[Rfam]
RNA sequence: CAGUAUGAAAACUGUAAGUCGUUCUGGAUAAGAGCGUCUGCUAAAUGACUAAAA
Number, nucleotide and partner (000 for none) at each position: 001c000002a000003g000004u000005a000006u000007g000008a000009a000010a000011a000012c000013u043014g041015u040016a039017a000018g000019u000020c036021g035022u034023u033024c032025u031026g000027g000028a000029u000030a000031a025032g024033a023034g022035c021036g020037u000038c000039u016040g015041c014042u000043a013044a000045a000046u000047g000048a000049c000050u000051a000052a000053a000054a000
RNA: UnaL2 LINE 3' element
Organism: Coregonus sp. 'balchen'